[Rfam]
Nucleotides: 056
Base pairs, nucleotide, nucleotide: 006050007049008048009047010046011045012044022039023038024037025036026035027034028033
Number, partner (000 for none) and nucleotide at each position: 001000g002000c003000c004000c005000g006050g007049a008048u009047c010046c011045g012044g013000g014000c015000c016000c017000c018000u019000c020000u021000g022039a023038c024037g025036g026035c027034g028033a029000g030000g031000c032000g033028u034027c035026g036025c037024c038023g039022u040000g041000a042000u043000g044012u045011c046010g047009g048008a049007u050006c051000c052000u053000u054000u055000c056000a